[Rfam]
About this RNA
This 69-nucleotide RNA sequence from Bacillus sp. J14TS2 belongs to the Rfam family "Bacillaceae-1 RNA". The base pairs follow the family's consensus structure, which is taken from published work.
RNA sequence: UAUAAGGGAACACAGGCAAAAUUCGCGCCGUCCCGGCGCAAUGCCUGUAUAUGACCUGCAUCCUGCAGG
Numbered sequence: 001u002a003u004a005a006g007g008g009a010a011c012a013c014a015g016g017c018a019a020a021a022u023u024c025g026c027g028c029c030g031u032c033c034c035g036g037c038g039c040a041a042u043g044c045c046u047g048u049a050u051a052u053g054a055c056c057u058g059c060a061u062c063c064u065g066c067a068g069g
Stems, first nucleotide, its partner, number of pairs: 012048006025039005055069005